RNA sequence: GCAACGGCUAGGUUUAGCGGCCGAAAAUCGGUUUUCAUCCACCGACCGCCGUUGCGUUCUCUUUCCUUGG
Numbered sequence: 001g002c003a004a005c006g007g008c009u010a011g012g013u014u015u016a017g018c019g020g021c022c023g024a025a026a027a028u029c030g031g032u033u034u035u036c037a038u039c040c041a042c043c044g045a046c047c048g049c050c051g052u053u054g055c056g057u058u059c060u061c062u063u064u065c066c067u068u069g070g
Base pairs, nucleotide, nucleotide: 001055002054003053004052005051006050007049008048011022012021013020014019028045029044030043031042032041038069
The family of this 70-nucleotide RNA sequence from Aporhodopirellula sallentina is "int-alpA RNA".
Acidobacteria (1 example), Planctomycetes (1 example), Proteobacteria.
Pairs were carried over by alignment from the consensus structure, which is taken from published work.